[Rfam]
RNA sequence: AGAAGUACCUGGAUGGGGUCAAUGGGCUAUCAAGAUAGCCCAUGGCCUAGGCUGAUGACCUUCAUUGCACUUCUAAGGGGCGUCCACGUAAGGUAAGCCCCGUGGUUGAGCCUACGUCAUAAUUUGUGGCAGUGGGCUGGGCAUCUUGAUUCUUGUGUUUGCGCAGCCUC
Number, nucleotide and partner (000 for none) at each position: 001a000002g000003a000004a000005g000006u000007a000008c000009c000010u000011g000012g118013a117014u116015g115016g048017g047018g046019u045020c044021a043022a000023u042024g041025g040026g039027c038028u000029a000030u000031c000032a000033a000034g000035a000036u000037a000038g027039c026040c025041c024042a023043u021044g020045g019046c018047c017048u016049a089050g000051g087052c000053u086054g000055a083056u082057g081058a000059c079060c078061u077062u075063c000064a000065u000066u000067g000068c000069a000070c000071u000072u000073c000074u000075a062076a000077g061078g060079g059080g000081c057082g056083u055084c000085c000086a053087c051088g000089u049090a000091a113092g112093g111094u109095a107096a106097g000098c105099c104100c000101c000102g000103u000104g099105g098106u096107u095108g000109a094110g000111c093112c092113u091114a000115c015116g014117u013118c012119a000120u000121a000122a000123u000124u000125u000126g000127u000128g000129g000130c000131a000132g000133u000134g169135g168136g167137c166138u165139g164140g000141g162142c161143a000144u000145c000146u000147u000148g000149a000150u000151u000152c000153u000154u000155g000156u000157g000158u000159u000160u000161g142162c141163g000164c139165a138166g137167c136168c135169u134170c000
RNA: U1 spliceosomal RNA